[Rfam]
RNA sequence: AGAUCGAUGAUGACACCCUUGUGUGCAUUCCUUGGAAAAUCUGAACAAAAUGAGUGAGAACACUCUACCAUCUCCUCAUCAAAUCUGAGGUCC
Numbered sequence: 001a002g003a004u005c006g007a008u009g010a011u012g013a014c015a016c017c018c019u020u021g022u023g024u025g026c027a028u029u030c031c032u033u034g035g036a037a038a039a040u041c042u043g044a045a046c047a048a049a050a051u052g053a054g055u056g057a058g059a060a061c062a063c064u065c066u067a068c069c070a071u072c073u074c075c076u077c078a079u080c081a082a083a084u085c086u087g088a089g090g091u092c093c
Stems, first nucleotide, its partner, number of pairs: 002092004026056005032048003
Dot-bracket structure: .((((....................(((((.(((...........)))...)))))................................)))).
A member of the RNA family "Small nucleolar RNA SNORD116" from Tursiops truncatus, 93 nucleotides long. A search with the family's covariance model found it, with a score of 87 bits. Rfam 15.1 lists 3,260 matches to the family in 170 species. The organism belongs to Tursiops, within Eukaryota. Rfam classes the family as a C/D-box small nucleolar RNA.